RNA sequence: CUUCCCAUUUAUUUGCUGCUUAGUCUCACAACAAUAUGAGUAGAUAUAUGCAUGGGAUAAAAUAAUACUGGGCCAUUACAAAUUGAGAUGAAAUAACCAUUUUCAUCUCUUUUGCUUGGACCAGACGUUC
Numbered sequence: 001c002u003u004c005c006c007a008u009u010u011a012u013u014u015g016c017u018g019c020u021u022a023g024u025c026u027c028a029c030a031a032c033a034a035u036a037u038g039a040g041u042a043g044a045u046a047u048a049u050g051c052a053u054g055g056g057a058u059a060a061a062a063u064a065a066u067a068c069u070g071g072g073c074c075a076u077u078a079c080a081a082a083u084u085g086a087g088a089u090g091a092a093a094u095a096a097c098c099a100u101u102u103u104c105a106u107c108u109c110u111u112u113u114g115c116u117u118g119g120a121c122c123a124g125a126c127g128u129u130c
Base pairs, nucleotide, nucleotide: 003057004056005055006054007053008052016043017042018041019040020039021036022035024034068124069123070122071121073119074118075117079114080113085109086108087107088106089105090103091102092101093100094099

Small nucleolar RNA SNORA20: a 130-nucleotide sequence from Microcebus murinus. Its Rfam clan is "SNORA20 clan". It is annotated as an H/ACA-box small nucleolar RNA. Lineage of the source: Eukaryota > Metazoa > Strepsirrhini > Cheirogaleidae > Microcebus. Rfam links the family to the GO terms RNA processing and nucleolus. ACA20 is a member of the H/ACA class of snoRNA that guide the sites of modification of uridines to pseudouridines.